[Rfam]
Notes
The family of this 45-nucleotide RNA from Arenicella xantha is "Guanidine-II riboswitch aptamer (mini-ykkC)". On this family, see Weinberg et al., Nucleic Acids Res 2007: "Identification of 22 candidate structured RNAs in bacteria using the CMfinder comparative genomics pipeline".
RNA sequence: AAGUGAGGACGACCUCACCUCUCAAAUUUACCAGGGGACGACCUC
Numbered sequence: 001a002a003g004u005g006a007g008g009a010c011g012a013c014c015u016c017a018c019c020u021c022u023c024a025a026a027u028u029u030a031c032c033a034g035g036g037g038a039c040g041a042c043c044u045c
Base pairs, nucleotide, nucleotide: 001020003018004017005016006015007014008013034045035044036043037042

Lineage of the source: Bacteria > Pseudomonadati > Pseudomonadota > Gammaproteobacteria > Arenicella. A search with the family's covariance model found it, with a score of 42 bits.